This 132-nucleotide sequence from Mustela putorius belongs to the Rfam family "U4 spliceosomal RNA". U4 small nuclear RNA (U4 snRNA) is a component of the major U2-dependent spliceosome.
[Rfam]
RNA sequence: AGCUUUGCGCAGGGGCAGUGUUGUAGCCAAUGAGGUUUAUCCGAGGCGCGAUUAUUGCUAAUUAAAAUCUCUUUCAUAAUAGCAAAUUAUGAAUAUGUAUAUAUGUGUGUAAUGUAUGUAUACAAAAAUUUG
Numbered sequence: 001a002g003c004u005u006u007g008c009g010c011a012g013g014g015g016c017a018g019u020g021u022u023g024u025a026g027c028c029a030a031u032g033a034g035g036u037u038u039a040u041c042c043g044a045g046g047c048g049c050g051a052u053u054a055u056u057g058c059u060a061a062u063u064a065a066a067a068u069c070u071c072u073u074u075c076a077u078a079a080u081a082g083c084a085a086a087u088u089a090u091g092a093a094u095a096u097g098u099a100u101a102u103a104u105g106u107g108u109g110u111a112a113u114g115u116a117u118g119u120a121u122a123c124a125a126a127a128a129u130u131u132g
Base pairs, nucleotide, nucleotide: 020052021051022050023049024048026047027046028045034042035041084110086108091106093104094103095102096101123132124131125130